[Rfam]
RNA: mir-7 microRNA precursor family
Organism: Acipenser ruthenus
RNA sequence: UGGUCUUGGCCGGUGUGGAAGACUAGUGAUUUUGUUGUUAUCACAAUGUAACCUGACAACAAGUCACAGUCUACCUCACCGCUCAGGAUA
Numbered sequence: 001u002g003g004u005c006u007u008g009g010c011c012g013g014u015g016u017g018g019a020a021g022a023c024u025a026g027u028g029a030u031u032u033u034g035u036u037g038u039u040a041u042c043a044c045a046a047u048g049u050a051a052c053c054u055g056a057c058a059a060c061a062a063g064u065c066a067c068a069g070u071c072u073a074c075c076u077c078a079c080c081g082c083u084c085a086g087g088a089u090a
Base pairs, nucleotide, nucleotide: 002089004087005086006085008084009083011081012080013079014078015077017075018074020072021071022070023069024068026067027066028065029064030063031062032061034060035059036058037057038056039055